This 95-nucleotide RNA sequence from Hevea brasiliensis belongs to the Rfam family "MIR535 microRNA precursor family". A reference for the family is Zeng et al. (2010), "Conservation and divergence of microRNAs and their functions in Euphorbiaceous plants", Nucleic Acids Res. It scores 90 bits against the family's covariance model. The source organism's lineage runs through Eukaryota, Streptophyta, Streptophytina, fabids and Hevea. The family's consensus secondary structure was predicted with RNAalifold.
RNA sequence: AUAAUUGGUUGACGAUGAGAGAGAGCACACUUGUUAGCAUUCAUGCUGUGGGCAUGGCUGUCUACAGGUGUGCUUUCUAUCGUCGUCAUACAAUA
Numbered sequence: 001a002u003a004a005u006u007g008g009u010u011g012a013c014g015a016u017g018a019g020a021g022a023g024a025g026c027a028c029a030c031u032u033g034u035u036a037g038c039a040u041u042c043a044u045g046c047u048g049u050g051g052g053c054a055u056g057g058c059u060g061u062c063u064a065c066a067g068g069u070g071u072g073c074u075u076u077c078u079a080u081c082g083u084c085g086u087c088a089u090a091c092a093a094u095a
Base pairs, nucleotide, nucleotide: 010088011087012086013085014084016082017081020078021077023075025073026072027071028070029069030068031067032066033065034064